Shown here is a 91-nucleotide RNA sequence from Fimbriimonas ginsengisoli, a member of the family "Selenocysteine transfer RNA". Pairs were carried over by alignment from the consensus structure, which is taken from published work. Its family is annotated with triplet codon-amino acid adaptor activity in the Gene Ontology.
RNA sequence: GGGAGUGAAUGGGUGCUGGUGUGCCUCCUGGUCUUCAAAACCAGUGUGACGUCGCAAAGGCGUCGGGUGGGUUCGAUUCCCACACAUUCCC
Numbered sequence: 001g002g003g004a005g006u007g008a009a010u011g012g013g014u015g016c017u018g019g020u021g022u023g024c025c026u027c028c029u030g031g032u033c034u035u036c037a038a039a040a041c042c043a044g045u046g047u048g049a050c051g052u053c054g055c056a057a058a059g060g061c062g063u064c065g066g067g068u069g070g071g072u073u074c075g076a077u078u079c080c081c082a083c084a085c086a087u088u089c090c091c
Base pairs, nucleotide, nucleotide: 001091002090003089004088005087006086007085011026012025013024014023015022016021028044029043030042031041032040047065048064049063050062051061068082069081070080071079
A reference for the family is Mizutani and Goto (2000), "Eukaryotic selenocysteine tRNA has the 9/4 secondary structure", FEBS Lett. Lineage of the source: Bacteria > Fimbriimonadales > Fimbriimonadaceae > Fimbriimonas > Fimbriimonas ginsengisoli.